[Rfam]
Small nucleolar RNA SNORA17: a 131-nucleotide RNA sequence from Microcebus murinus. Rfam describes the family as follows. snoRNA ACA 17 belongs to the H/ACA family of snoRNAs and is predicted to guide pseudouridylation of the 28S rRNA at positions U4659 and U4598. It shares the same host gene together with ACA43. NB This family has a high threshold value to exclude a large number of closely related sequences that do not appear to have conserved H and ACA boxes, and may be pseudogenes. The match comes from Rfam's covariance-model search (113 bits). A reference for the family is Ofengand and Bakin (1997), "Mapping to nucleotide resolution of pseudouridine residues in large subunit ribosomal RNAs from representative eukaryotes, prokaryotes, archaebacteria, mitochondria and chloroplasts", J Mol Biol. Rfam links the family to the GO terms nucleolus and RNA processing. The base pairs follow the family's consensus structure, which was predicted with RNAalifold. Taxonomically the source falls in Microcebus (Eukaryota, Chordata, Dipnotetrapodomorpha, Lemuriformes).

Nucleotides: 131
Stems, first nucleotide, its partner, number of pairs: 002060005007054002010051002012048003018045004024039005067128001070125007082114002085111004090105004
Number, partner (000 for none) and nucleotide at each position: 001000a002060c003059u004058g005057c006056c007054c008053c009000a010051g011050a012048g013047g014046u015000g016000u017000u018045a019044c020043a021042g022000a023000c024039g025038u026037g027036g028035c029000u030000g031000c032000u033000g034000u035028g036027u037026u038025g039024c040000a041000u042021u043020u044019g045018u046014g047013u048012c049000a050011u051010c052000g053008g054007g055000u056006g057005g058004c059003a060002g061000a062000g063000a064000g065000a066000a067128g068000a069000g070125a071124g072123g073122c074121u075120g076119u077000g078000u079000c080000u081000a082114c083113a084000c085111u086110c087109a088108g089000g090105g091104u092103u093102c094000u095000g096000a097000c098000c099000c100000g101000u102093g103092a104091a105090u106000g107000u108088u109087u110086g111085a112000a113083u114082g115000a116000u117000u118000a119076a120075u121074a122073g123072u124071u125070u126000g127000a128067c129000a130000c131000u